[Rfam]
RNA sequence: UUGCCGGUGAAAGUCCGGCCGUGGGAAUUGGCUGUAAGCCCACGUAGUCAUACUCGACACUUCUUGGGGGUGACCCCGGAGGUGGAAGCUCGGGAGUACAAGUCCUUGCCGGAGCAGGGCGAGCAAGUCAGCGGGCCGUAGCAUAA
Numbered sequence: 001u002u003g004c005c006g007g008u009g010a011a012a013g014u015c016c017g018g019c020c021g022u023g024g025g026a027a028u029u030g031g032c033u034g035u036a037a038g039c040c041c042a043c044g045u046a047g048u049c050a051u052a053c054u055c056g057a058c059a060c061u062u063c064u065u066g067g068g069g070g071u072g073a074c075c076c077c078g079g080a081g082g083u084g085g086a087a088g089c090u091c092g093g094g095a096g097u098a099c100a101a102g103u104c105c106u107u108g109c110c111g112g113a114g115c116a117g118g119g120c121g122a123g124c125a126a127g128u129c130a131g132c133g134g135g136c137c138g139u140a141g142c143a144u145a146a
Base pairs, nucleotide, nucleotide: 020044021043022042023041024040053094054093055092056091058084059083060082061081062080063079067075069074104119105118106117107116108115123139124138
Rfam assigns this 146-nucleotide RNA sequence from Gemmatimonas sp. to the family "Group II catalytic intron D1-D4-4". Rfam links the family to the GO term Group II intron splicing. The base pairs follow the family's consensus structure. Rfam describes the family as follows. Group II introns are found in rRNA, tRNA and mRNA of organelles in fungi, plants and protists, and also in mRNA in bacteria. It scores 75 bits against the family's covariance model. The literature on the family includes a 2003 paper in Crit Rev Biochem Mol Biol by Lehmann and Schmidt, "Group II introns: structure and catalytic versatility of large natural ribozymes".